[Rfam]
RNA sequence: AUAUUUACUCACAGUUACAGGUUCUAUAAUAAAAAUAACCUCGUGAUUACGGGGUUUUUUGUUAUAUGGACUUUUGAUUUUCCGUGUGUUAACCGGAUUAGAUAGGGGCUUUUAGCCCUUUUUUC
Number, nucleotide and partner (000 for none) at each position: 001a000002u000003a000004u000005u000006u000007a000008c000009u000010c000011a000012c000013a000014g000015u000016u000017a000018c000019a000020g000021g000022u000023u000024c000025u000026a000027u000028a000029a000030u000031a000032a000033a000034a058035a057036u000037a056038a055039c054040c053041u052042c051043g050044u000045g000046a000047u000048u000049a000050c043051g042052g041053g040054g039055u038056u037057u035058u034059u000060u000061g000062u000063u000064a000065u000066a000067u000068g000069g000070a000071c000072u000073u000074u000075u000076g000077a000078u000079u000080u000081u000082c000083c000084g000085u000086g000087u000088g000089u000090u000091a000092a000093c000094c000095g000096g000097a000098u000099u000100a000101g000102a000103u000104a000105g000106g118107g117108g116109c115110u000111u000112u000113u000114a000115g109116c108117c107118c106119u000120u000121u000122u000123u000124u000125c000
Shown here is a 125-nucleotide sequence from Shewanella aestuarii, a member of the family "Gammaprotebacteria rimP leader". The family's consensus secondary structure is taken from published work. Rfam classes the family as a cis-regulatory leader. A search with the family's covariance model found it, with a score of 48 bits. Its family is annotated with regulation of gene expression in the Gene Ontology.